This 207-nucleotide RNA sequence from Paraburkholderia sp. UCT31 belongs to the Rfam family "permuted transfer-messenger RNA".
By type it is a non-coding RNA gene.
Rfam describes the family as follows. Bacterial tmRNA, also known as 10Sa RNA or SsrA, is named for its dual tRNA and mRNA-like properties. Its role is to liberate the mRNA from a stalled ribosome. To accomplish this part of the tmRNA is used as a reading frame that ends in a translation stop signal. The broken mRNA is replaced in the ribosome by the tmRNA and translation of the tmRNA leads to addition of a proteolysis tag to the incomplete protein enabling recognition by a protease.
The base pairs follow the family's consensus structure, which is taken from published work.
The literature on the family includes a 2002 paper in Nucleic Acids Res by Williams, "The tmRNA Website: invasion by an intron".
RNA sequence: GGAUGCAAACGAGAACACAGUUCUGGACGGGGUUCGAUACCCCCAGCUCCACCAAGAAAGGCUUCGUUUAGGUGAGGCCUUCCUUGAUGGGGCUGACAGGUUUCGACAGGGCUGAAAGUACCGGGAGAGUACGACACGUCAGGCGCCUGACGCUAAUAGCGCAACUUGACAAACGCCAACGAUGACGUUUUCGCUGUCGCUGCCUGA
Dot-bracket structure: .........((.......(((.(((...((((.......))))(((((((......................................)))))))...........))).)))........)).............((((........)))).......................................................